Source information: Rfam assigns this 163-nucleotide RNA from Sulfobacillus harzensis to the family "c-di-AMP riboswitch aptamer (ydaO/yuaA leader)". Rfam's curators write: This family represents a conserved RNA structure found upstream of the ydaO and yuaA genes in Bacillus subtilis and related genes in other bacteria. It scores 46 bits against the family's covariance model. Gene Ontology terms of the family: cyclic-di-AMP binding and regulation of gene expression.
RNA sequence: AUAAUAUGUGCGCCGAAUCCUUGCUGCAGCAGGGUACGGGGGAUCCUAAAGACGUCGUCUUUAGGUGGUGAAUCCGGCGCUUUUGCGUCGGUAGGGGGCUCCUUCUCCCCCGAACCACGGGUCAUGCCGCUACUAACCUCGGAGGCAGUUAACCAGAAGGAAG
Numbered sequence: 001a002u003a004a005u006a007u008g009u010g011c012g013c014c015g016a017a018u019c020c021u022u023g024c025u026g027c028a029g030c031a032g033g034g035u036a037c038g039g040g041g042g043a044u045c046c047u048a049a050a051g052a053c054g055u056c057g058u059c060u061u062u063a064g065g066u067g068g069u070g071a072a073u074c075c076g077g078c079g080c081u082u083u084u085g086c087g088u089c090g091g092u093a094g095g096g097g098g099c100u101c102c103u104u105c106u107c108c109c110c111c112g113a114a115c116c117a118c119g120g121g122u123c124a125u126g127c128c129g130c131u132a133c134u135a136a137c138c139u140c141g142g143a144g145g146c147a148g149u150u151a152a153c154c155a156g157a158a159g160g161a162a163g
Stems, first nucleotide, its partner, number of pairs: 012146003019034006037141005046065002066117003074091004094111004